[Rfam]
RNA: mir-132 microRNA precursor family
RNA sequence: ACCGUGGCAUUAGAUUGUUACUGUAGCAACAGCACCACUGGUAACAGUCUACAGCCAUGGUCG
Numbered sequence: 001a002c003c004g005u006g007g008c009a010u011u012a013g014a015u016u017g018u019u020a021c022u023g024u025a026g027c028a029a030c031a032g033c034a035c036c037a038c039u040g041g042u043a044a045c046a047g048u049c050u051a052c053a054g055c056c057a058u059g060g061u062c063g
Stems, first nucleotide, its partner, number of pairs: 002060002005057004013049010